[Rfam]
RNA sequence: CCCGGUCCGCGUAACUGGCGCUGAAGAUGGAAACACCAUCGGGGAACGUGGACCGCGAGCCCGCUCGCGUUGCGCCGCGCGCCUGGGCAUUGCCU
Numbered sequence: 001c002c003c004g005g006u007c008c009g010c011g012u013a014a015c016u017g018g019c020g021c022u023g024a025a026g027a028u029g030g031a032a033a034c035a036c037c038a039u040c041g042g043g044g045a046a047c048g049u050g051g052a053c054c055g056c057g058a059g060c061c062c063g064c065u066c067g068c069g070u071u072g073c074g075c076c077g078c079g080c081g082c083c084u085g086g087g088c089a090u091u092g093c094c095u
Base pairs, nucleotide, nucleotide: 003055004054005053006052007051008050009049010048011047012046015043016042017083018082019081020080021079027039028038029037030036072090074088075087076086
Notes:
Rfam assigns this 95-nucleotide sequence from Paraburkholderia sp. BL10I2N1 to the family "ZMP/ZTP riboswitch aptamer (pfl RNA motif)".